[Rfam]
RNA: mir-9256 microRNA precursor family
Organism: Pipistrellus kuhlii
RNA sequence: AUAUACAUUGAGCGGCCAGAUUAUUAUGCAUUCAGAGAUCAUAAUCAUCUGGCCGCUCAGUGUAUUU
Numbered sequence: 001a002u003a004u005a006c007a008u009u010g011a012g013c014g015g016c017c018a019g020a021u022u023a024u025u026a027u028g029c030a031u032u033c034a035g036a037g038a039u040c041a042u043a044a045u046c047a048u049c050u051g052g053c054c055g056c057u058c059a060g061u062g063u064a065u066u067u
Stems, first nucleotide, its partner, number of pairs: 004064014019049003023045006